[Rfam]
RNA sequence: UGGAUAGUAUCCUUUGGGAACUAUACCAGAAAAAUUUUAUAUAAAAAAAUUUAAUAUUAUUUUUUAAUCUGCUCUGAGCCUUUGCUAUGGACCGAGACAGAAGG
Numbered sequence: 001u002g003g004a005u006a007g008u009a010u011c012c013u014u015u016g017g018g019a020a021c022u023a024u025a026c027c028a029g030a031a032a033a034a035u036u037u038u039a040u041a042u043a044a045a046a047a048a049a050u051u052u053a054a055u056a057u058u059a060u061u062u063u064u065u066a067a068u069c070u071g072c073u074c075u076g077a078g079c080c081u082u083u084g085c086u087a088u089g090g091a092c093c094g095a096g097a098c099a100g101a102a103g104g
Base pairs, nucleotide, nucleotide: 001028002027003026004024005023006022007021008020010019011018069100070099071098072096073095074094076092079090080089